[Rfam]
RNA: ZMP/ZTP riboswitch aptamer (pfl RNA motif)
Organism: Paractinoplanes abujensis
RNA sequence: GGUAGCCACGGCGACUGGCGGCACCGGGGAUGGAUACACCAUCGGGGAGCCUGUCACGGGGAGUCGACCGCCUGGGCCCCCGUG
Numbered sequence: 001g002g003u004a005g006c007c008a009c010g011g012c013g014a015c016u017g018g019c020g021g022c023a024c025c026g027g028g029g030a031u032g033g034a035u036a037c038a039c040c041a042u043c044g045g046g047g048a049g050c051c052u053g054u055c056a057c058g059g060g061g062a063g064u065c066g067a068c069c070g071c072c073u074g075g076g077c078c079c080c081c082g083u084g
Stems, first nucleotide, its partner, number of pairs: 003053003011050002015046002017072005030042004061079001063077003